A member of the RNA family "Xanthomonadaceae sRNA sX13" from Dokdonella koreensis, 110 nucleotides long. The family's consensus secondary structure was predicted with CMfinder. A search with the family's covariance model found it, with a score of 54 bits.
RNA sequence: AACGGCGCCCCCGGAUCCCCUCCUCCCUGGGUGGAUCCUGUGAAGCCCGGAUUCUCCCCAAGUCCGGUCUUCCCGCCCCGAGGGCUCCCCCUGGCCCUCGGGGCAUUUUA
Numbered sequence: 001a002a003c004g005g006c007g008c009c010c011c012c013g014g015a016u017c018c019c020c021u022c023c024u025c026c027c028u029g030g031g032u033g034g035a036u037c038c039u040g041u042g043a044a045g046c047c048c049g050g051a052u053u054c055u056c057c058c059c060a061a062g063u064c065c066g067g068u069c070u071u072c073c074c075g076c077c078c079c080g081a082g083g084g085c086u087c088c089c090c091c092u093g094g095c096c097c098u099c100g101g102g103g104c105a106u107u108u109u110a
Stems, first nucleotide, its partner, number of pairs: 004011002013038006019031002022029001042072004047067007075104007083096003